Rfam assigns this 118-nucleotide RNA sequence from Homo sapiens to the family "mir-1294 microRNA precursor family".
The base pairs follow the family's consensus structure, which was predicted with RNAalifold.
It is one of the family's seed sequences.
RNA sequence: AAGAUCUGUUCAUUUAUGAUCUCACCGAGUCCUGUGAGGUUGGCAUUGUUGUCUGGCAUUGUCUGAUAUACAACAGUGCCAACCUCACAGGACUCAGUGAGGUGAAACUGAGGAUUAG
Numbered sequence: 001a002a003g004a005u006c007u008g009u010u011c012a013u014u015u016a017u018g019a020u021c022u023c024a025c026c027g028a029g030u031c032c033u034g035u036g037a038g039g040u041u042g043g044c045a046u047u048g049u050u051g052u053c054u055g056g057c058a059u060u061g062u063c064u065g066a067u068a069u070a071c072a073a074c075a076g077u078g079c080c081a082a083c084c085u086c087a088c089a090g091g092a093c094u095c096a097g098u099g100a101g102g103u104g105a106a107a108c109u110g111a112g113g114a115u116u117a118g
Base pairs, nucleotide, nucleotide: 003116004115005114006113007112010111011110012109014107015106017105019103020102021101022100023099024098025097027095028094029093030092031091032090033089034088035087036086037085038084039083040082041081042080043079044078045077046076047075048074049073050072051071052070057065058064
Dot-bracket structure: ..(((((..(((.((.(.(((((((.((((((((((((((((((((((((((....((.....))....)))))))))))))))))))))))))).))))))).))).))))))))..